Record summary
transfer-messenger RNA: a 357-nucleotide RNA sequence from Mammaliicoccus stepanovicii.
[Rfam]
RNA sequence: GGGGACGUUACGGAUUCGACAGGGGUCCCCGAGCUUAUGAAGCGUGUCGGAGGGUUGUCUUCGUCAUCAACACAACAGUUAUAAUAACUGGCAAACAACAAAACUUAGCAGUAGCUGCCUAAUAGCGCUCUGCAUCACCUAAUAGCAUCACCUAUGUGCUGUUAACGUGAUUCAAAUUAAGUAGGGUACGCUCGUCACUGCCGUUUGAAGUCUGACGAGAAGAGAUUAAUCAAACUAGCAUUGUAAUAGGGUGUCAGUCUCCUAUAACAAUGCGAAACGCCAACGACUAGACUACACACGUAGAAACAUUCGUAUCAGGAUCUCUGGACGCGGGUUCAACUCCCGCCGUCUCCAUUA
Numbered sequence: 001g002g003g004g005a006c007g008u009u010a011c012g013g014a015u016u017c018g019a020c021a022g023g024g025g026u027c028c029c030c031g032a033g034c035u036u037a038u039g040a041a042g043c044g045u046g047u048c049g050g051a052g053g054g055u056u057g058u059c060u061u062c063g064u065c066a067u068c069a070a071c072a073c074a075a076c077a078g079u080u081a082u083a084a085u086a087a088c089u090g091g092c093a094a095a096c097a098a099c100a101a102a103a104c105u106u107a108g109c110a111g112u113a114g115c116u117g118c119c120u121a122a123u124a125g126c127g128c129u130c131u132g133c134a135u136c137a138c139c140u141a142a143u144a145g146c147a148u149c150a151c152c153u154a155u156g157u158g159c160u161g162u163u164a165a166c167g168u169g170a171u172u173c174a175a176a177u178u179a180a181g182u183a184g185g186g187u188a189c190g191c192u193c194g195u196c197a198c199u200g201c202c203g204u205u206u207g208a209a210g211u212c213u214g215a216c217g218a219g220a221a222g223a224g225a226u227u228a229a230u231c232a233a234a235c236u237a238g239c240a241u242u243g244u245a246a247u248a249g250g251g252u253g254u255c256a257g258u259c260u261c262c263u264a265u266a267a268c269a270a271u272g273c274g275a276a277a278c279g280c281c282a283a284c285g286a287c288u289a290g291a292c293u294a295c296a297c298a299c300g301u302a303g304a305a306a307c308a309u310u311c312g313u314a315u316c317a318g319g320a321u322c323u324c325u326g327g328a329c330g331c332g333g334g335u336u337c338a339a340c341u342c343c344c345g346c347c348g349u350c351u352c353c354a355u356u357a
Base pairs, nucleotide, nucleotide: 001353002352003351004350005349006348007347020326021325022324023323024322025321026320027319028318031315033313034312037309038308039307043300044299045298046297047296048063049062050061051060052059054076055075056074057073058072110131111130114129116127117126118125134171135170136169137168138167140164141163142162143161145159146158147157148156151185152184153183154182155181191219192218193217194216195215196214197213203235204234205233206232207231238273239272240271241270242269243268244267246265247264249262250261251260253292254291255290257287258286259285330346331345332344333343334342